This 93-nucleotide RNA sequence from Orycteropus afer belongs to the Rfam family "Small nucleolar RNA SNORD91 family". A search with the family's covariance model found it, with a score of 101 bits. The organism belongs to Orycteropus afer, within Eukaryota. Gene Ontology terms of the family: nucleolus and RNA processing. Rfam 15.1 lists 977 matches to the family in 495 species. It is annotated as a C/D-box small nucleolar RNA. For this family Rfam cites "RNomics: an experimental approach that identifies 201 candidates for novel, small, non-messenger RNAs in mouse" (Huttenhofer et al., EMBO J, 2001).

RNA sequence: UAAUGAAGUCAAUGAUGGUUUUACUCAUAAUGUCUGAACCUGUCUGAAGCAUCUCAGUGAUGCAAUCUAUGUAGUUCUGAGACUUCUCUGAGA
Numbered sequence: 001u002a003a004u005g006a007a008g009u010c011a012a013u014g015a016u017g018g019u020u021u022u023a024c025u026c027a028u029a030a031u032g033u034c035u036g037a038a039c040c041u042g043u044c045u046g047a048a049g050c051a052u053c054u055c056a057g058u059g060a061u062g063c064a065a066u067c068u069a070u071g072u073a074g075u076u077c078u079g080a081g082a083c084u085u086c087u088c089u090g091a092g093a
Stems, first nucleotide, its partner, number of pairs: 005086006